[Rfam]
A member of the RNA family "raiA-hairpin RNA" from Streptomyces brasiliensis, 48 nucleotides long. Lineage of the source: Bacteria > Actinomycetes > Kitasatosporales > Streptomycetaceae > Streptomyces.
RNA sequence: CACCGAGUCCGAGGUUCCGGUGCUGGCCGGAACUUGGUGCAAAAGGGA
Numbered sequence: 001c002a003c004c005g006a007g008u009c010c011g012a013g014g015u016u017c018c019g020g021u022g023c024u025g026g027c028c029g030g031a032a033c034u035u036g037g038u039g040c041a042a043a044a045g046g047g048a
Stems, first nucleotide, its partner, number of pairs: 013034008

The family's RNA type in Rfam is small RNA. A search with the family's covariance model found it, with a score of 67 bits.